[Rfam]
RNA sequence: CCUGGUUGUAUGAUGAACUAUUACGGAUGUAAACCUUUGUCACUUCUGAUGGCGCAAAUUAUGUGGAAACUUUCCGUUGCCUUCCUUCUGAUCAACCAA
Numbered sequence: 001c002c003u004g005g006u007u008g009u010a011u012g013a014u015g016a017a018c019u020a021u022u023a024c025g026g027a028u029g030u031a032a033a034c035c036u037u038u039g040u041c042a043c044u045u046c047u048g049a050u051g052g053c054g055c056a057a058a059u060u061a062u063g064u065g066g067a068a069a070c071u072u073u074c075c076g077u078u079g080c081c082u083u084c085c086u087u088c089u090g091a092u093c094a095a096c097c098a099a
Stems, first nucleotide, its partner, number of pairs: 003098003024076004

Small nucleolar RNA Z13/snr52: a 99-nucleotide sequence from Akanthomyces lecanii. Rfam classes the family as a C/D-box small nucleolar RNA. Lineage of the source: Eukaryota > saccharomyceta > Sordariomycetes > Cordycipitaceae > Akanthomyces. Rfam links the family to the GO terms RNA processing and nucleolus.